RNA: U4atac minor spliceosomal RNA
RNA sequence: ACCCUCCUCUUCUUGGGGUUGCUCUGUGGUCCAAUGAGCACUUAGUGAGGGCAGUGCGACUAGCGCCCACACAACACGCCUGCAUCAGCUAGCGCUCUGCGUUAGCUUGGUGCGAUUUUUGGGAAA
Dot-bracket structure: .....((((.....))))..(.(..((.((((.....((.....))..)))).))..).).....................((((((..((((((...))))))...)))))).............